[Rfam]
RNA sequence: AUUUGGUGGGAGUGAUGAUUCAAUUAGAUGCGCUAAGUUACCUUAUGAGCUAAACAUUUUGAGGCAUAAUUUUAUCUGACCUACCAAGA
Numbered sequence: 001a002u003u004u005g006g007u008g009g010g011a012g013u014g015a016u017g018a019u020u021c022a023a024u025u026a027g028a029u030g031c032g033c034u035a036a037g038u039u040a041c042c043u044u045a046u047g048a049g050c051u052a053a054a055c056a057u058u059u060u061g062a063g064g065c066a067u068a069a070u071u072u073u074a075u076c077u078g079a080c081c082u083a084c085c086a087a088g089a
Base pairs, nucleotide, nucleotide: 002088003087004086005085006084007083008082009081010080
RNA: Small nucleolar RNA Z266